[Rfam]
The record is an 84-nucleotide sequence from Heyndrickxia ginsengihumi, which matches "c-di-GMP-I riboswitch aptamer" in Rfam.
RNA sequence: AUCUGAUAAAGGCAAACCUAUUGAAAAGUGGGGACGCAAAGUCUCGGGUCUAAGGUAACAUACUAUGAUGGCUGGACUACCGGG
Numbered sequence: 001a002u003c004u005g006a007u008a009a010a011g012g013c014a015a016a017c018c019u020a021u022u023g024a025a026a027a028g029u030g031g032g033g034a035c036g037c038a039a040a041g042u043c044u045c046g047g048g049u050c051u052a053a054g055g056u057a058a059c060a061u062a063c064u065a066u067g068a069u070g071g072c073u074g075g076a077c078u079a080c081c082g083g084g
Stems, first nucleotide, its partner, number of pairs: 012037002017032006040078004045074003048069003055063003

GEMM was predicted in a large-scale screen for bacterial structured RNA regulatory elements. The base pairs follow the family's consensus structure, which is taken from published work.